[Rfam]
RNA: MIR1435 microRNA precursor family
Organism: Paspalum vaginatum
RNA sequence: GGGCUUUGUCCCAAGUCGAACUUUACUAAAUUUUUGAAAAAAAUAUAUUAAUAUCUACAAACCAAAUAAAUGCACUAUCAAGACAUAUUUCAUGGUGGAUUAAUGGAACUAAUUUGAUGUUGUAGAUGUUGAUGCUUUUUCUAAGAACUUGGUCAAAGUUAGAGAAGUUUGACUUGGGACAAAGCUGA
Number, nucleotide and partner (000 for none) at each position: 001g000002g000003g000004c000005u183006u182007u181008g180009u179010c000011c177012c176013a175014a174015g173016u172017c171018g170019a169020a168021c167022u166023u165024u164025a000026c162027u000028a000029a000030a000031u157032u156033u155034u000035u000036g000037a000038a142039a000040a140041a139042a138043a137044u000045a000046u134047a133048u132049u000050a130051a129052u128053a127054u126055c125056u124057a123058c122059a121060a000061a000062c000063c116064a115065a114066a113067u112068a000069a000070a000071u000072g000073c000074a000075c000076u000077a000078u000079c000080a000081a000082g000083a000084c000085a000086u000087a000088u000089u000090u000091c000092a000093u000094g000095g000096u000097g000098g000099a000100u000101u000102a000103a000104u000105g000106g000107a000108a000109c000110u000111a000112a067113u066114u065115u064116g063117a000118u000119g000120u000121u059122g058123u057124a056125g055126a054127u053128g052129u051130u050131g000132a048133u047134g046135c000136u000137u043138u042139u041140u040141c000142u038143a000144a000145g000146a000147a000148c000149u000150u000151g000152g000153u000154c000155a033156a032157a031158g000159u000160u000161a000162g026163a000164g024165a023166a022167g021168u020169u019170u018171g017172a016173c015174u014175u013176g012177g011178g000179a009180c008181a007182a006183a005184g000185c000186u000187g000188a000